[Rfam]
Shown here is a 37-nucleotide RNA, a member of the family "L19-Flavobacteria ribosomal protein leader". By type it is a cis-regulatory leader. The base pairs follow the family's consensus structure, which is taken from published work.
RNA sequence: UAACCGCUGACAGGAAGAAUGUACCCCGUGAAUGUUA
Numbered sequence: 001u002a003a004c005c006g007c008u009g010a011c012a013g014g015a016a017g018a019a020u021g022u023a024c025c026c027c028g029u030g031a032a033u034g035u036u037a
Stems, first nucleotide, its partner, number of pairs: 001037004008032001010029002013026001